A member of the RNA family "Small nucleolar RNA SNORD97" from Larimichthys crocea, 177 nucleotides long. Rfam 15.1 lists 639 matches to the family in 614 species. Rfam links the family to the GO terms nucleolus and RNA processing. By type it is a C/D-box small nucleolar RNA. The match comes from Rfam's covariance-model search (66 bits). NCBI's taxonomy places the organism under Eukaryota, Eumetazoa, Gnathostomata, Actinopteri, Larimichthys.

[Rfam]
RNA sequence: AUGCCCAGUGAUUAUAAAAAGACGCGUUAUUCUGAGGAGCACAACCAGCUGCCAGUCUUUAUCUACCCUUCACUCUGUCUUUGAUCUCCAUCUUUCCUAUCCCUCCUACACUCCUUCUCUUCUCUUUCUCAAACUGGUAGCUGGUCCGCUGACUGCGAUUAUGAGAUAUGAGGGCAU
Numbered sequence: 001a002u003g004c005c006c007a008g009u010g011a012u013u014a015u016a017a018a019a020a021g022a023c024g025c026g027u028u029a030u031u032c033u034g035a036g037g038a039g040c041a042c043a044a045c046c047a048g049c050u051g052c053c054a055g056u057c058u059u060u061a062u063c064u065a066c067c068c069u070u071c072a073c074u075c076u077g078u079c080u081u082u083g084a085u086c087u088c089c090a091u092c093u094u095u096c097c098u099a100u101c102c103c104u105c106c107u108a109c110a111c112u113c114c115u116u117c118u119c120u121u122c123u124c125u126u127u128c129u130c131a132a133a134c135u136g137g138u139a140g141c142u143g144g145u146c147c148g149c150u151g152a153c154u155g156c157g158a159u160u161a162u163g164a165g166a167u168a169u170g171a172g173g174g175c176a177u
Stems, first nucleotide, its partner, number of pairs: 001177006035094004